[Rfam]
RNA sequence: GGGCGUAUAGCUCAGUGGUAGAGCACUGCCUUCACACGGCAGGGGUCCGUGGUUCGAACCCACGUACGCCCA
Number, nucleotide and partner (000 for none) at each position: 001g071002g070003g069004c068005g067006u066007a065008u000009a000010g024011c023012u022013c021014a000015g000016u000017g000018g000019u000020a000021g013022a012023g011024c010025a000026c042027u041028g040029c039030c038031u000032u000033c000034a000035c000036a000037c000038g030039g029040c028041a027042g026043g000044g000045g000046u000047c000048c064049g063050u062051g061052g060053u000054u000055c000056g000057a000058a000059c000060c052061c051062a050063c049064g048065u007066a006067c005068g004069c003070c002071c001072a000